[Rfam]
RNA sequence: AAGGGGAGCACUGGCUCCUGGGCUGUGUCCCUGUUGCCUUGGGCUCUGGGGUCUCCACUGCUGGAAUCGCGUUCCUGGGCCACAUAGCCACCU
Dot-bracket structure: (.(.((...(.(((..((.(((.((((((((.((.(....(.(((....)))).).)).)..)))..)))).))).)).)))..)..)).).)
Rfam assigns this 93-nucleotide sequence from Canis lupus to the family "mir-8799 microRNA precursor family". Its family is annotated with RISC complex and miRNA-mediated post-transcriptional gene silencing in the Gene Ontology. Clan: mir-8791 microRNA precursor clan.